[Rfam]
RNA sequence: CGACGUCUGUUCCUCUUCCUGUGUGAAGUCAAUCAGGAGGAUUUUAAGACGUCGCAGAGCAAAUUGAGUCUUUUUCACCCAGAGAGCUUCAGGCAGCUGCAGCCAAUCAGAACUUCUGGUAGCUGCAGCAGCCAAUCAUCA
Numbered sequence: 001c002g003a004c005g006u007c008u009g010u011u012c013c014u015c016u017u018c019c020u021g022u023g024u025g026a027a028g029u030c031a032a033u034c035a036g037g038a039g040g041a042u043u044u045u046a047a048g049a050c051g052u053c054g055c056a057g058a059g060c061a062a063a064u065u066g067a068g069u070c071u072u073u074u075u076c077a078c079c080c081a082g083a084g085a086g087c088u089u090c091a092g093g094c095a096g097c098u099g100c101a102g103c104c105a106a107u108c109a110g111a112a113c114u115u116c117u118g119g120u121a122g123c124u125g126c127a128g129c130a131g132c133c134a135a136u137c138a139u140c141a
Base pairs, nucleotide, nucleotide: 001054002053003052004051005050006049007048008047014041015040016039017038018037020035021034068133069131071128072127079119080118081117082116083115084113087110088109092104093103094102096100